[Rfam]
The family of this 82-nucleotide sequence from Carlito syrichta is "Small nucleolar RNA SNORD115". It scores 61 bits against the family's covariance model. Rfam links the family to the GO terms RNA processing and nucleolus. The family's RNA type in Rfam is C/D-box small nucleolar RNA. A reference for the family is Cavaille et al. (2000), "Identification of brain-specific and imprinted small nucleolar RNA genes exhibiting an unusual genomic organization", Proc Natl Acad Sci U S A. NCBI's taxonomy places the organism under Eukaryota, Chordata, Vertebrata, Haplorrhini, Carlito.

RNA sequence: GGGUCAAUGAUGAAAGCUUUGCAUUGUAUAUAGAGAGCUGAUGAAUUAAAAGUCAUGCUCAACAGAAUUAUGCUUGAGUUCC
Numbered sequence: 001g002g003g004u005c006a007a008u009g010a011u012g013a014a015a016g017c018u019u020u021g022c023a024u025u026g027u028a029u030a031u032a033g034a035g036a037g038c039u040g041a042u043g044a045a046u047u048a049a050a051a052g053u054c055a056u057g058c059u060c061a062a063c064a065g066a067a068u069u070a071u072g073c074u075u076g077a078g079u080u081c082c
Stems, first nucleotide, its partner, number of pairs: 001082003005076002008072002